[Rfam]
RNA sequence: ACAGUCUGAAAAUAACUUGGGGUCUCCUGUGGCCCCUGGUGCCAUAACUGUGCCGACAGCAGAGGGAGCAUUAAACUCAUUGCCCACAGUAAAGCGUGGGAGUGAAACCCAUGUUCUGAUAAUC
Numbered sequence: 001a002c003a004g005u006c007u008g009a010a011a012a013u014a015a016c017u018u019g020g021g022g023u024c025u026c027c028u029g030u031g032g033c034c035c036c037u038g039g040u041g042c043c044a045u046a047a048c049u050g051u052g053c054c055g056a057c058a059g060c061a062g063a064g065g066g067a068g069c070a071u072u073a074a075a076c077u078c079a080u081u082g083c084c085c086a087c088a089g090u091a092a093a094g095c096g097u098g099g100g101a102g103u104g105a106a107a108c109c110c111a112u113g114u115u116c117u118g119a120u121a122a123u124c
Stems, first nucleotide, its partner, number of pairs: 006050001008048001010045001015040002021034004065117001067115005077105005085096001087094001